Shown here is a 111-nucleotide sequence from SAR202 cluster bacterium AD-802-E10_MRT_200m, a member of the family "TPP riboswitch aptamer (THI element)".
[Rfam]
RNA sequence: UAAUAGCAAAACGGGAGCUAGGGUAACCUGGCUGAGAGGCUCCUGCCAAGGGGGCGACCGAAUGAACCUGACCUGGAUAAUGCCAGCGCAGGGAUCAUCACUAAAGCCUUC
Numbered sequence: 001u002a003a004u005a006g007c008a009a010a011a012c013g014g015g016a017g018c019u020a021g022g023g024u025a026a027c028c029u030g031g032c033u034g035a036g037a038g039g040c041u042c043c044u045g046c047c048a049a050g051g052g053g054g055c056g057a058c059c060g061a062a063u064g065a066a067c068c069u070g071a072c073c074u075g076g077a078u079a080a081u082g083c084c085a086g087c088g089c090a091g092g093g094a095u096c097a098u099c100a101c102u103a104a105a106g107c108c109u110u111c
Base pairs, nucleotide, nucleotide: 006099010095012060013059014058017032018031019030020029021028039055040054041053042052043051067092068091069090070089073086074085075084076083
Dot-bracket structure: .....(...(.(((..(((((......)))))......(((((.......)))))..)))......((((..((((......))))..))))..)...)............
Pairs were carried over by alignment from the consensus structure, which is taken from published work.